[Rfam]
RNA sequence: GCCCUUUCCAAAGCUGCGAUUCCGAGCUACAAACAGAGAAACUUCGGGUUCCGCAGUCUCUCGGUCUCGUCCUCCUCCGGAGUUCAGACAUUUCAUCAGCUCGUGAGAAAUUCGGAGGACUCUUCAUUUUUCCCGCCUUCGCCUUGCCAGGAUCCAUGGCUUGGCUGGCCCGCCCGUGAGGGCCUGGCUUGACUUCAAGCUUGCAACAGUGGCAUAAGAAACGCAGGGCCUGUGACCUCAUGUAUAUCCGCGAGGAGAAGAUGGGGUUGGCAGCGUCCCUAUGAGAGAGCCGUUGCGAAGAUUGUGUUUGAAUCACUUAAGUCCGAUUCGCAGCUUGGGAUGCCUCGUUCGCGAGCACCCAAUAUUCGAUUCCGAUUAUUCUGUUAAGGGC
Numbered sequence: 001g002c003c004c005u006u007u008c009c010a011a012a013g014c015u016g017c018g019a020u021u022c023c024g025a026g027c028u029a030c031a032a033a034c035a036g037a038g039a040a041a042c043u044u045c046g047g048g049u050u051c052c053g054c055a056g057u058c059u060c061u062c063g064g065u066c067u068c069g070u071c072c073u074c075c076u077c078c079g080g081a082g083u084u085c086a087g088a089c090a091u092u093u094c095a096u097c098a099g100c101u102c103g104u105g106a107g108a109a110a111u112u113c114g115g116a117g118g119a120c121u122c123u124u125c126a127u128u129u130u131u132c133c134c135g136c137c138u139u140c141g142c143c144u145u146g147c148c149a150g151g152a153u154c155c156a157u158g159g160c161u162u163g164g165c166u167g168g169c170c171c172g173c174c175c176g177u178g179a180g181g182g183c184c185u186g187g188c189u190u191g192a193c194u195u196c197a198a199g200c201u202u203g204c205a206a207c208a209g210u211g212g213c214a215u216a217a218g219a220a221a222c223g224c225a226g227g228g229c230c231u232g233u234g235a236c237c238u239c240a241u242g243u244a245u246a247u248c249c250g251c252g253a254g255g256a257g258a259a260g261a262u263g264g265g266g267u268u269g270g271c272a273g274c275g276u277c278c279c280u281a282u283g284a285g286a287g288a289g290c291c292g293u294u295g296c297g298a299a300g301a302u303u304g305u306g307u308u309u310g311a312a313u314c315a316c317u318u319a320a321g322u323c324c325g326a327u328u329c330g331c332a333g334c335u336u337g338g339g340a341u342g343c344c345u346c347g348u349u350c351g352c353g354a355g356c357a358c359c360c361a362a363u364a365u366u367c368g369a370u371u372c373c374g375a376u377u378a379u380u381c382u383g384u385u386a387a388g389g390g391c
Stems, first nucleotide, its partner, number of pairs: 001391004011382001015333001023103004036094003113374005122300004172183004186201005207295007226280003335362005
The record is a 391-nucleotide sequence from Monosporascus sp. CRB-8-3, which matches "Nuclear RNase P" in Rfam.
The base pairs follow the family's consensus structure, which is taken from published work.
Ribonuclease P (RNase P) is a ubiquitous endoribonuclease, found in archaea, bacteria and eukarya as well as chloroplasts and mitochondria. Its best characterised activity is the generation of mature 5'-ends of tRNAs by cleaving the 5'-leader elements of precursor-tRNAs. Cellular RNase Ps are ribonucleoproteins. RNA from bacterial RNase Ps retains its catalytic activity in the absence of the protein subunit, i.e. it is a ribozyme.
The family's RNA type in Rfam is ribozyme.
Its Rfam clan is "RNaseP clan".